[Rfam]
RNA sequence: GUCUGACACGGCCCCACGGUGUCCAGUUUGGGCCCGAGUUUUGGUCGUGGUGCGAUGAC
Numbered sequence: 001g002u003c004u005g006a007c008a009c010g011g012c013c014c015c016a017c018g019g020u021g022u023c024c025a026g027u028u029u030g031g032g033c034c035c036g037a038g039u040u041u042u043g044g045u046c047g048u049g050g051u052g053c054g055a056u057g058a059c
Stems, first nucleotide, its partner, number of pairs: 007049007016041001018035002021033005